[Rfam]
RNA: UnaL2 LINE 3' element
Organism: Cottoperca gobio
Nucleotides: 054
Stems, first nucleotide, its partner, number of pairs: 013043001014041003020036005
Number, partner (000 for none) and nucleotide at each position: 001000u002000a003000g004000u005000u006000a007000g008000u009000u010000c011000a012000c013043u014041g015040u016039a017000a018000g019000u020036c021035g022034c023033u024032c025000u026000g027000g028000a029000u030000a031000u032024g033023a034022g035021c036020g037000u038000c039016u040015g041014c042000u043013a044000a045000a046000u047000g048000a049000c050000u051000a052000a053000u054000g